Background
A member of the RNA family "Small nucleolar RNA SNORA15" from Crocodylus porosus, 131 nucleotides long. Rfam describes the family as follows. ACA15 is a member of the H/ACA class of snoRNA that guide the sites of modification of uridines to pseudouridines. The literature on the family includes a 2001 paper in EMBO J by Huttenhofer et al., "RNomics: an experimental approach that identifies 201 candidates for novel, small, non-messenger RNAs in mouse". The source organism's lineage runs through Eukaryota, Bilateria, Sauria, Archelosauria and Crocodylus. A search with the family's covariance model found it, with a score of 83 bits. It is annotated as an H/ACA-box small nucleolar RNA.
RNA sequence: GCAUGGAUGAAUUCUGUGUUAGCUUCAUCAGUAGUUCAUACAGUCAGACACCAUGCUAAAGUAUAUCCACUUUAACUAUUUCUAAUGUCAUGCUGUAUUCCAAGCUGACAUGUUUUAAAGAGUGGAUACAU
Numbered sequence: 001g002c003a004u005g006g007a008u009g010a011a012u013u014c015u016g017u018g019u020u021a022g023c024u025u026c027a028u029c030a031g032u033a034g035u036u037c038a039u040a041c042a043g044u045c046a047g048a049c050a051c052c053a054u055g056c057u058a059a060a061g062u063a064u065a066u067c068c069a070c071u072u073u074a075a076c077u078a079u080u081u082c083u084a085a086u087g088u089c090a091u092g093c094u095g096u097a098u099u100c101c102a103a104g105c106u107g108a109c110a111u112g113u114u115u116u117a118a119a120g121a122g123u124g125g126a127u128a129c130a131u
Stems, first nucleotide, its partner, number of pairs: 001056006014043006068124002070120006085111006092105003